[Rfam]
RNA sequence: AAAUGUUCUCUUUUAGUAUUUCUCCAGUAGGUUUCCUCAAGGAGAAAGCCUGC
Numbered sequence: 001a002a003a004u005g006u007u008c009u010c011u012u013u014u015a016g017u018a019u020u021u022c023u024c025c026a027g028u029a030g031g032u033u034u035c036c037u038c039a040a041g042g043a044g045a046a047a048g049c050c051u052g053c
Stems, first nucleotide, its partner, number of pairs: 030050005036044003
RNA: U7 small nuclear RNA